[Rfam]
RNA: Small nucleolar RNA Z103
Organism: Marchantia polymorpha
RNA sequence: AUGGAAAUGAGGAACCUUUCCCCGAAUGAACGACGCUGAUUCGAACUGUGCGAUUUGCUCUUCGGAGCCAAGCCAGAGAACUGAUCCAU
Numbered sequence: 001a002u003g004g005a006a007a008u009g010a011g012g013a014a015c016c017u018u019u020c021c022c023c024g025a026a027u028g029a030a031c032g033a034c035g036c037u038g039a040u041u042c043g044a045a046c047u048g049u050g051c052g053a054u055u056u057g058c059u060c061u062u063c064g065g066a067g068c069c070a071a072g073c074c075a076g077a078g079a080a081c082u083g084a085u086c087c088a089u
Stems, first nucleotide, its partner, number of pairs: 001089005